Rfam assigns this 49-nucleotide RNA sequence to the family "DUF2693-FD RNA". About the family: DUF2693-FD RNA is a non-coding RNA (ncRNA) recognised in Bacteroides by a bioinformatic analisis by Zasha Weinberg. No recognised genes.
RNA sequence: UCCCUGCGGACGGAUUGAACGGCAUCGGGUAGCGAGAACCCGGCAGGGA
Dot-bracket structure: (((((((...((....[..)).{..(((((..]..}.))))))))))))
Pairs were carried over by alignment from the consensus structure, which is taken from published work.